mir-10 microRNA precursor family: a 73-nucleotide sequence from Hymenochirus boettgeri. Pairs were carried over by alignment from the consensus structure, which was predicted with PFOLD.
RNA sequence: CUGUAUGUACCCUGUAGAUCCGAAUUUGUGUGAGGAAUCAUGUCACAAAUUCGUGUCUGGGGGGAUAUGCAGU
Numbered sequence: 001c002u003g004u005a006u007g008u009a010c011c012c013u014g015u016a017g018a019u020c021c022g023a024a025u026u027u028g029u030g031u032g033a034g035g036a037a038u039c040a041u042g043u044c045a046c047a048a049a050u051u052c053g054u055g056u057c058u059g060g061g062g063g064g065a066u067a068u069g070c071a072g073u
Base pairs, nucleotide, nucleotide: 002071003070004069005068006067007066010063011062012061016058017057018056019055021053022052023051024050025049026048027047028046029045030044
Notes:
Lineage of the source: Eukaryota > Metazoa > Eumetazoa > Craniata > Hymenochirus. Its family is annotated with RISC complex and miRNA-mediated post-transcriptional gene silencing in the Gene Ontology. For this family Rfam cites "microRNAs: tiny regulators with great potential" (Ambros, Cell, 2001).